RNA sequence: GUACUCCCUCUGUAAACUAAUAUAAGAGUGUUUAGAUAACUAAAGAGUUAUCUAAACACUCUUAUAUUAGUUUACAGAGGGAGUAU
Numbered sequence: 001g002u003a004c005u006c007c008c009u010c011u012g013u014a015a016a017c018u019a020a021u022a023u024a025a026g027a028g029u030g031u032u033u034a035g036a037u038a039a040c041u042a043a044a045g046a047g048u049u050a051u052c053u054a055a056a057c058a059c060u061c062u063u064a065u066a067u068u069a070g071u072u073u074a075c076a077g078a079g080g081g082a083g084u085a086u
Stems, first nucleotide, its partner, number of pairs: 003084003007080005013074005019068023
The record is an 86-nucleotide RNA sequence from Triticum turgidum, which matches "MIR1120/MIR1122 microRNA precursor family" in Rfam.